[Rfam]
RNA: ASpks TB sRNA
Nucleotides: 075
Base pairs, nucleotide, nucleotide: 016024017023031071032070033069038065043060044059045058047056049054
Number, partner (000 for none) and nucleotide at each position: 001000c002000u003000u004000c005000a006000c007000c008000g009000a010000g011000c012000c013000g014000a015000g016024c017023c018000a019000c020000a021000a022000c023017g024016g025000g026000c027000g028000g029000u030000c031071c032070u033069c034000g035000u036000c037000g038065c039000g040000u041000c042000c043060c044059u045058g046000u047056c048000c049054g050000u051000a052000c053000g054049u055000c056047g057000c058045c059044a060043g061000g062000a063000g064000g065038g066000c067000c068000u069033g070032a071031g072000c073000c074000u075000c